[Rfam]
RNA sequence: UGUAUGGUGCUUGGCAAGACCAAGUGGCGAUACAGCCUAUACAGAGGU
Numbered sequence: 001u002g003u004a005u006g007g008u009g010c011u012u013g014g015c016a017a018g019a020c021c022a023a024g025u026g027g028c029g030a031u032a033c034a035g036c037c038u039a040u041a042c043a044g045a046g047g048u
Base pairs, nucleotide, nucleotide: 001034002033003032004031005030007028008027011023012022013021014020
The family of this 48-nucleotide RNA from Thalassotalea piscium is "L31-Gammaproteobacteria ribosomal protein leader". The organism belongs to Thalassotalea, within Bacteria. By type it is a cis-regulatory leader.